RNA sequence: CUAUUUUCUAGUGUGGCAUCAUCAAGAUUCACAUCUCUUUGAUAAGAUUUCUCUUGUUAAUUGUUAGAAGAGAGAUGAAGAGUGAAAAUGGGAAUCUUGAUGAUGCUGCAUCGGAAAUUAA
Numbered sequence: 001c002u003a004u005u006u007u008c009u010a011g012u013g014u015g016g017c018a019u020c021a022u023c024a025a026g027a028u029u030c031a032c033a034u035c036u037c038u039u040u041g042a043u044a045a046g047a048u049u050u051c052u053c054u055u056g057u058u059a060a061u062u063g064u065u066a067g068a069a070g071a072g073a074g075a076u077g078a079a080g081a082g083u084g085a086a087a088a089u090g091g092g093a094a095u096c097u098u099g100a101u102g103a104u105g106c107u108g109c110a111u112c113g114g115a116a117a118u119u120a121a
Stems, first nucleotide, its partner, number of pairs: 011111020032090002
The family of this 121-nucleotide RNA sequence from Carex littledalei is "mir-172 microRNA precursor family". Gene Ontology terms of the family: miRNA-mediated post-transcriptional gene silencing and RISC complex. The match comes from Rfam's covariance-model search (74 bits). The family has 11 seed sequences and 2,076 matches in Rfam 15.1. From the family's description: mir-172 has been experimentally verified in Arabidopsis thaliana. This family is thought to target mRNAs coding for APETALA2-like transcription factors.